[Rfam]
RNA sequence: UGAAUAAUCUGGCAAACUAUAUGAAAAUAUAGGACGCAAAGCCACGGGUCUUCGCAUAGCAUGAUAGCCGGGUUACGAUU
Numbered sequence: 001u002g003a004a005u006a007a008u009c010u011g012g013c014a015a016a017c018u019a020u021a022u023g024a025a026a027a028u029a030u031a032g033g034a035c036g037c038a039a040a041g042c043c044a045c046g047g048g049u050c051u052u053c054g055c056a057u058a059g060c061a062u063g064a065u066a067g068c069c070g071g072g073u074u075a076c077g078a079u080u
Base pairs, nucleotide, nucleotide: 012037013036017032018031019030020029021028022027040074041073042072043071045070046069047068048065049064050063055059
Dot-bracket structure: ...........((...((((((....))))))...))..((((.((((((....(...)...)))..)))))))......